This 193-nucleotide RNA from Mycolicibacterium holsaticum belongs to the Rfam family "Actinobacteria sRNA Ms_IGR-5".
A search with the family's covariance model found it, with a score of 172 bits.
The base pairs follow the family's consensus structure.
Taxonomically the source falls in Mycobacterium (subgen. Mycolicibacterium) (Bacteria, Actinomycetes, Mycobacteriales, Mycobacteriaceae).
The family's RNA type in Rfam is small RNA.
RNA sequence: ACACAGGGAAGGAGGUGGUCCGAGAUUUUGAGUGACAUAUGGACGUGUGAGGUGGCUGCGAGCUAGCAGCGCCAGGGGAAUGAGCUGAGGCUCUUCGCGCCCUGCGCGCGCUGGCGAAUUCCCCGCAGUCACCCGGCCCCCGAGCCCCUUGGUCUUGUCCAACCAGGUACACGCGGCUCGGGGGCCGACCCAU
Numbered sequence: 001a002c003a004c005a006g007g008g009a010a011g012g013a014g015g016u017g018g019u020c021c022g023a024g025a026u027u028u029u030g031a032g033u034g035a036c037a038u039a040u041g042g043a044c045g046u047g048u049g050a051g052g053u054g055g056c057u058g059c060g061a062g063c064u065a066g067c068a069g070c071g072c073c074a075g076g077g078g079a080a081u082g083a084g085c086u087g088a089g090g091c092u093c094u095u096c097g098c099g100c101c102c103u104g105c106g107c108g109c110g111c112u113g114g115c116g117a118a119u120u121c122c123c124c125g126c127a128g129u130c131a132c133c134c135g136g137c138c139c140c141c142g143a144g145c146c147c148c149u150u151g152g153u154c155u156u157g158u159c160c161a162a163c164c165a166g167g168u169a170c171a172c173g174c175g176g177c178u179c180g181g182g183g184g185c186c187g188a189c190c191c192a193u
Stems, first nucleotide, its partner, number of pairs: 015059005062115006069109004074103003134187013148167006